[Rfam]
RNA sequence: CUACCACCAAACCCUAUCUCCACCUCCACGUGGUGACCGCUGGGAGCUCUUUCUUUGCGAAAAGCUGCAAACGGAGAAGG
Numbered sequence: 001c002u003a004c005c006a007c008c009a010a011a012c013c014c015u016a017u018c019u020c021c022a023c024c025u026c027c028a029c030g031u032g033g034u035g036a037c038c039g040c041u042g043g044g045a046g047c048u049c050u051u052u053c054u055u056u057g058c059g060a061a062a063a064g065c066u067g068c069a070a071a072c073g074g075a076g077a078a079g080g
Stems, first nucleotide, its partner, number of pairs: 013080003017076001019074002022034003045066004050061002053059001

This 80-nucleotide RNA from Hermetia illucens belongs to the Rfam family "drz-agam-1 ribozyme". A search with the family's covariance model found it, with a score of 39 bits. Gene Ontology term of the family: catalytic activity.